This 136-nucleotide sequence from Paramuricea clavata belongs to the Rfam family "U4 spliceosomal RNA".
It scores 109 bits against the family's covariance model.
By type it is a spliceosomal small nuclear RNA.
The literature on the family includes a 1997 paper in Nucleic Acids Res by Zwieb, "The uRNA database".
Lineage of the source: Eukaryota > Cnidaria > Octocorallia > Malacalcyonacea > Paramuricea.
The family's consensus secondary structure is taken from published work.
[Rfam]
RNA sequence: AGCUUUGCGCAGUGGCAUUAUCGUAGCCGAUGAGGUUCAUCCGAGGCGCGAUUAUUGCUGAUUGAAAACUUAUACCAAUACCCCGCCAGACGGCCUAUAUGGCCGGCUGUGCAAUUUUUCUUGGUCCUUCAUUGGA
Numbered sequence: 001a002g003c004u005u006u007g008c009g010c011a012g013u014g015g016c017a018u019u020a021u022c023g024u025a026g027c028c029g030a031u032g033a034g035g036u037u038c039a040u041c042c043g044a045g046g047c048g049c050g051a052u053u054a055u056u057g058c059u060g061a062u063u064g065a066a067a068a069c070u071u072a073u074a075c076c077a078a079u080a081c082c083c084c085g086c087c088a089g090a091c092g093g094c095c096u097a098u099a100u101g102g103c104c105g106g107c108u109g110u111g112c113a114a115u116u117u118u119u120c121u122u123g124g125u126c127c128u129u130c131a132u133u134g135g136a
Stems, first nucleotide, its partner, number of pairs: 020052005026047003034042002085112002087109003091105005125136003
Dot-bracket structure: ...................(((((.(((.....((.....))..))))))))................................(((((.(((((.....))))).))).))............(((......)))